[Rfam]
RNA: msiK RNA
Organism: Leucobacter soli
RNA sequence: GGCGACCGUCUUUCACAACGGAUCGUCCGGCACGUACCUGCCGGUGAAGGAGAAUCAU
Numbered sequence: 001g002g003c004g005a006c007c008g009u010c011u012u013u014c015a016c017a018a019c020g021g022a023u024c025g026u027c028c029g030g031c032a033c034g035u036a037c038c039u040g041c042c043g044g045u046g047a048a049g050g051a052g053a054a055u056c057a058u
Stems, first nucleotide, its partner, number of pairs: 009051007027044006